[Rfam]
Background: The family of this 174-nucleotide RNA sequence is "Lysine riboswitch aptamer".

RNA sequence: UCUAUUCGUAGAGGUUGCAUUGUAUAUGAGUAUCAUUUAAGAGAACUGUGGGUUCUAAGACGAAAUGAGAAAGGAUCCUAUGCCGAAGAAAUAAAUUGCCACACAUUUUAUUUCUGGGACUACAUUUAAUAAAUGUGGUACUGUCACAUGUGUUUGUGAAGAGCUAUUGAAGAG
Numbered sequence: 001u002c003u004a005u006u007c008g009u010a011g012a013g014g015u016u017g018c019a020u021u022g023u024a025u026a027u028g029a030g031u032a033u034c035a036u037u038u039a040a041g042a043g044a045a046c047u048g049u050g051g052g053u054u055c056u057a058a059g060a061c062g063a064a065a066u067g068a069g070a071a072a073g074g075a076u077c078c079u080a081u082g083c084c085g086a087a088g089a090a091a092u093a094a095a096u097u098g099c100c101a102c103a104c105a106u107u108u109u110a111u112u113u114c115u116g117g118g119a120c121u122a123c124a125u126u127u128a129a130u131a132a133a134u135g136u137g138g139u140a141c142u143g144u145c146a147c148a149u150g151u152g153u154u155u156g157u158g159a160a161g162a163g164c165u166a167u168u169g170a171a172g173a174g
Base pairs, nucleotide, nucleotide: 006169008167009166010165011164017083018082019081020080022078024076025075033068034067035066036065037064038063087115088114089113090112091111092110093109094108095107097105098104116142117141119139120138121137122136123135124134125133126132144159145158146157147156148155

Pairs were carried over by alignment from the consensus structure, which is taken from published work.